Shown here is a 349-nucleotide sequence from Pokkaliibacter plantistimulans, a member of the family "Bacterial RNase P class A". Rfam describes the family as follows. Ribonuclease P (RNase P) is a ubiquitous endoribonuclease, found in archaea, bacteria and eukarya as well as chloroplasts and mitochondria. Its family is annotated with dimeric ribonuclease P complex, tRNA processing and ribonuclease P activity in the Gene Ontology. A search with the family's covariance model found it, with a score of 331 bits. The family's RNA type in Rfam is ribozyme.
RNA sequence: UGAGUCCGCUGGACAAUCGUCGCCCUGCAAGGGGGGGAGGAAAGUCCGGGCUCCACAGGGCAGAGUGCCAGAUAACGUCUGGGAGGCGCGAGCCUACGGAAAGUGCAACAGAAAGUACACCGCCUAAGUCCGCAAGGACCGGUAAGGUUGAAAUGGUGCGGUAAGAGCGCACCGCGUGGGUGGCAACACUCCACGGCGAUGGUAAACCCCACUCGGAGCAAGACCAAAUAGGAACCCAUUAGGCGUGGCCCACGCUGGGUUCGGGUAGGUCGCUUGAGGUCAGUGGUGACGCUGACCCUAGAUGAAUGAUUGUCCUCGACAGAACCCGGCUUACAGGCGGGCUCAGCCC
Numbered sequence: 001u002g003a004g005u006c007c008g009c010u011g012g013a014c015a016a017u018c019g020u021c022g023c024c025c026u027g028c029a030a031g032g033g034g035g036g037g038a039g040g041a042a043a044g045u046c047c048g049g050g051c052u053c054c055a056c057a058g059g060g061c062a063g064a065g066u067g068c069c070a071g072a073u074a075a076c077g078u079c080u081g082g083g084a085g086g087c088g089c090g091a092g093c094c095u096a097c098g099g100a101a102a103g104u105g106c107a108a109c110a111g112a113a114a115g116u117a118c119a120c121c122g123c124c125u126a127a128g129u130c131c132g133c134a135a136g137g138a139c140c141g142g143u144a145a146g147g148u149u150g151a152a153a154u155g156g157u158g159c160g161g162u163a164a165g166a167g168c169g170c171a172c173c174g175c176g177u178g179g180g181u182g183g184c185a186a187c188a189c190u191c192c193a194c195g196g197c198g199a200u201g202g203u204a205a206a207c208c209c210c211a212c213u214c215g216g217a218g219c220a221a222g223a224c225c226a227a228a229u230a231g232g233a234a235c236c237c238a239u240u241a242g243g244c245g246u247g248g249c250c251c252a253c254g255c256u257g258g259g260u261u262c263g264g265g266u267a268g269g270u271c272g273c274u275u276g277a278g279g280u281c282a283g284u285g286g287u288g289a290c291g292c293u294g295a296c297c298c299u300a301g302a303u304g305a306a307u308g309a310u311u312g313u314c315c316u317c318g319a320c321a322g323a324a325c326c327c328g329g330c331u332u333a334c335a336g337g338c339g340g341g342c343u344c345a346g347c348c349c
Stems, first nucleotide, its partner, number of pairs: 001345010011334001012314007020037002023034004042332003046329005051218004058251004063214005068082005083097001084095004098209002103207002105203002120147002122143003128139004155173006174197001175195005180189003222271004232262006242256005278297008